A member of the RNA family "Editing element of GABA-3 exon 9" from Sander lucioperca, 54 nucleotides long.
For this family Rfam cites "Editing modifies the GABA(A) receptor subunit alpha3" (Ohlson et al., RNA, 2007).
Lineage of the source: Eukaryota > Opisthokonta > Actinopteri > Perciformes > Sander.
It is annotated as a cis-regulatory element.
[Rfam]
RNA sequence: AAAGUAGCCUACGCUACAGCUAUGGAUUGGUUCAUUGCCGUCUGCUACGCUUUC
Dot-bracket structure: .((..(((.((.((.((.((.(((((....))))).)).))..)))).))))).